[Rfam]
RNA sequence: CAGACUUGCUACUAGGUGGUUGAGAGACGCGCGAAAAGCGUGGAUCUAGCUCUGUGCAGUGAGCAACAUUAUCAAAUUGCGGGGACCUCCUGUUAACAUCCAAUGCUACCGCCGCUCCGUCGAAAGUCGAGCUGGCACCGGGUUAGUGACCCUGGGUAUGGUAAUAACGCAUUGGAUAUACGGAAAAUCCGCAGCAAACUCCCUACGGGUGCGUCCUACGGGGUCUGUCCACAGACUAAAUGAUAAUGGGUACCGUCAAAUACGGUGCUUAAGAUAUAGUCGAUCCCCGGGAGACCGGGCC
Numbered sequence: 001c002a003g004a005c006u007u008g009c010u011a012c013u014a015g016g017u018g019g020u021u022g023a024g025a026g027a028c029g030c031g032c033g034a035a036a037a038g039c040g041u042g043g044a045u046c047u048a049g050c051u052c053u054g055u056g057c058a059g060u061g062a063g064c065a066a067c068a069u070u071a072u073c074a075a076a077u078u079g080c081g082g083g084g085a086c087c088u089c090c091u092g093u094u095a096a097c098a099u100c101c102a103a104u105g106c107u108a109c110c111g112c113c114g115c116u117c118c119g120u121c122g123a124a125a126g127u128c129g130a131g132c133u134g135g136c137a138c139c140g141g142g143u144u145a146g147u148g149a150c151c152c153u154g155g156g157u158a159u160g161g162u163a164a165u166a167a168c169g170c171a172u173u174g175g176a177u178a179u180a181c182g183g184a185a186a187a188u189c190c191g192c193a194g195c196a197a198a199c200u201c202c203c204u205a206c207g208g209g210u211g212c213g214u215c216c217u218a219c220g221g222g223g224u225c226u227g228u229c230c231a232c233a234g235a236c237u238a239a240a241u242g243a244u245a246a247u248g249g250g251u252a253c254c255g256u257c258a259a260a261u262a263c264g265g266u267g268c269u270u271a272a273g274a275u276a277u278a279g280u281c282g283a284u285c286c287c288c289g290g291g292a293g294a295c296c297g298g299g300c301c
Stems, first nucleotide, its partner, number of pairs: 005026003009022001011020003030040003067248005073242002078193006088184003194228002199223004207216003232282001234281005250268007286299005
The family of this 301-nucleotide sequence from Hyphodiscus hymeniophilus is "Group I catalytic intron". Group I catalytic introns are large self-splicing ribozymes. They catalyse their own excision from mRNA, tRNA and rRNA precursors in a wide range of organisms. The organism belongs to Hyphodiscus, within Eukaryota.